[Rfam]
Shown here is a 115-nucleotide RNA from Allostreptomyces psammosilenae, a member of the family "SAM (S-adenosyl methionine) riboswitch aptamer". The source organism's lineage runs through Bacteria, Bacillati, Actinomycetota, Streptomycetaceae and Allostreptomyces. Rfam describes the family as follows. SAM-IV is a mRNA element that regulates gene expression via direct sensing of S-adenosylmethionine (SAM or AdoMet). SAM-IV riboswitches share conserved nucleotide positions with the previously described SAM-I riboswitches sequence analysis and molecular recognition experiments suggest that SAM-I and SAM-IV riboswitches share similar ligand binding sites, but have different scaffolds. The match comes from Rfam's covariance-model search (104 bits).
RNA sequence: GGUCACGAGUGACAGCGCGGAAAGCCCCGGCUCGCUGUCCGGCAACCCUCCCUCCGCGGCGGGGUGCCCCGGGUGAUGACCAGGUCUCAGGUAGCACCUGCGGCAAGCGCGGACC
Dot-bracket structure: ((((....(.((((((......((......)).)))))))(((..(((.((......))..))).))).........))))..(((.(((((...))))).)))...........
Numbered sequence: 001g002g003u004c005a006c007g008a009g010u011g012a013c014a015g016c017g018c019g020g021a022a023a024g025c026c027c028c029g030g031c032u033c034g035c036u037g038u039c040c041g042g043c044a045a046c047c048c049u050c051c052c053u054c055c056g057c058g059g060c061g062g063g064g065u066g067c068c069c070c071g072g073g074u075g076a077u078g079a080c081c082a083g084g085u086c087u088c089a090g091g092u093a094g095c096a097c098c099u100g101c102g103g104c105a106a107g108c109g110c111g112g113a114c115c
Stems, first nucleotide, its partner, number of pairs: 001081004009040001011039006023032002041068003046064003050059002084104003088100005